[Rfam]
RNA sequence: UUAUUUAUCUGAGGCAAAUCCUCAUCUAGUUGUAGUAGACCCACAUCUGACUGCUUAGAAUCACUAGUUAUCGUAGGAUCGACUAUAUCAAAAUUGGUUGGUUUCUUGUUUUCAAAAAGAAUUAAAAUUUGAUGCAGAUGAAAGCUAAAAA
Numbered sequence: 001u002u003a004u005u006u007a008u009c010u011g012a013g014g015c016a017a018a019u020c021c022u023c024a025u026c027u028a029g030u031u032g033u034a035g036u037a038g039a040c041c042c043a044c045a046u047c048u049g050a051c052u053g054c055u056u057a058g059a060a061u062c063a064c065u066a067g068u069u070a071u072c073g074u075a076g077g078a079u080c081g082a083c084u085a086u087a088u089c090a091a092a093a094u095u096g097g098u099u100g101g102u103u104u105c106u107u108g109u110u111u112u113c114a115a116a117a118a119g120a121a122u123u124a125a126a127a128u129u130u131g132a133u134g135c136a137g138a139u140g141a142a143a144g145c146u147a148a149a150a151a
Stems, first nucleotide, its partner, number of pairs: 004149004008143001012139001018133002024128002027124005